A member of the RNA family "U1 spliceosomal RNA", 160 nucleotides long.
RNA sequence: AUACUUACCUGGACGGGGUUAAUGGGCGAUCAAUAAGACCCAUGGGCCUAGGUUGGUGACCUCCAUUGCACUUUGGAGGGGUGCCUACCUAAGGUCGGCUCAAGUAGUCGAGCCUACGUCAUAAUUUGUUGCAGUGGGCCUGCGUUCGCGCGGCCCCUAC
Numbered sequence: 001a002u003a004c005u006u007a008c009c010u011g012g013a014c015g016g017g018g019u020u021a022a023u024g025g026g027c028g029a030u031c032a033a034u035a036a037g038a039c040c041c042a043u044g045g046g047c048c049u050a051g052g053u054u055g056g057u058g059a060c061c062u063c064c065a066u067u068g069c070a071c072u073u074u075g076g077a078g079g080g081g082u083g084c085c086u087a088c089c090u091a092a093g094g095u096c097g098g099c100u101c102a103a104g105u106a107g108u109c110g111a112g113c114c115u116a117c118g119u120c121a122u123a124a125u126u127u128g129u130u131g132c133a134g135u136g137g138g139c140c141u142g143c144g145u146u147c148g149c150g151c152g153g154c155c156c157c158u159a160c
Base pairs, nucleotide, nucleotide: 012120013119014118015117016048017047019045020044021043023042024041025040026039049091050090051089052088054087056084057083058082060080061079062078063076064075092115093114094113095111096110097109099107100106136157137156138155141152142151143150144149

About this RNA:
It is annotated as a spliceosomal small nuclear RNA. About the family: U1 is a small nuclear RNA (snRNA) component of the spliceosome (involved in pre-mRNA splicing). Its 5' end forms complementary base pairs with the 5' splice junction, thus defining the 5' donor site of an intron. There are significant differences in sequence and secondary structure between metazoan and yeast U1 snRNAs, the latter being much longer (568 nucleotides as compared to 164 nucleotides in human). Nevertheless, secondary structure predictions suggest that all U1 snRNAs share a 'common core' consisting of helices I, II, the proximal region of III, and IV. This family does not contain the larger yeast sequences.